[Rfam]
Nucleotides: 304
Stems, first nucleotide, its partner, number of pairs: 014022001056246005062240002067191006077182003192226002197221004205214003230283001232282005248269006289302005
Number, partner (000 for none) and nucleotide at each position: 001000a002000c003000u004000c005000g006000g007000u008000g009000g010000u011000u012000a013000a014022g015000u016000g017000u018000g019000a020000c021000c022014c023000g024000a025000a026000a027000g028000g029000g030000c031000u032000c033000g034000c035000a036000a037000g038000u039000g040000c041000c042000g043000g044000a045000u046000u047000c048000u049000g050000g051000c052000g053000c054000g055000a056246c057245a058244c059243u060242g061000u062240c063239a064000a065000a066000u067191u068190g069189c070188g071187g072186g073000g074000a075000c076000u077182c078181c079180c080000u081000a082000a083000a084000g085000c086000u087000c088000c089000a090000u091000g092000g093000g094000a095000c096000c097000g098000c099000c100000c101000g102000c103000u104000c105000c106000a107000c108000g109000a110000a111000a112000g113000u114000g115000g116000a117000g118000u119000u120000u121000u122000u123000u124000u125000a126000a127000g128000g129000g130000c131000a132000c133000c134000a135000g136000g137000u138000u139000a140000a141000c142000g143000a144000c145000c146000u147000c148000g149000g150000g151000u152000a153000c154000g155000g156000u157000a158000a159000c160000a161000c162000u163000c164000c165000u166000g167000g168000a169000g170000a171000u172000g173000c174000a175000a176000c177000a178000a179000u180079g181078g182077g183000u184000a185000a186072u187071c188070u189069g190068c191067a192226g193225c194000c195000a196000a197221g198220u199219c200218c201000u202000a203000c204000g205214g206213g207212c208000g209000a210000u211000c212207g213206c214205c215000u216000a217000c218200g219199g220198a221197u222000g223000c224000a225193g226192u227000u228000c229000a230283c231000a232282g233281a234280c235279u236278a237000g238000a239063u240062g241000g242060c243059a244058g245057u246056g247000g248269g249268c250267u251266c252265c253264c254000c255000c256000c257000u258000u259000c260000u261000c262000g263000c264253g265252g266251g267250a268249g269248c270000u271000u272000a273000a274000g275000a276000u277000a278236u279235a280234g281233u282232c283230g284000g285000u286000c287000c288000u289302c290301u291300g292299g293298g294000g295000a296000g297000a298293c299292c300291c301290a302289g303000g304000c
A member of the RNA family "Group I catalytic intron" from Cladophialophora carrionii, 304 nucleotides long. Pairs were carried over by alignment from the consensus structure, which is taken from published work. Lineage of the source: Eukaryota > Opisthokonta > Dikarya > Chaetothyriales > Cladophialophora. From the family's description: Group I catalytic introns are large self-splicing ribozymes. They catalyse their own excision from mRNA, tRNA and rRNA precursors in a wide range of organisms. The core secondary structure consists of 9 paired regions (P1-P9). These fold to essentially two domains - the P4-P6 domain (formed from the stacking of P5, P4, P6 and P6a helices) and the P3-P9 domain (formed from the P8, P3, P7 and P9 helices).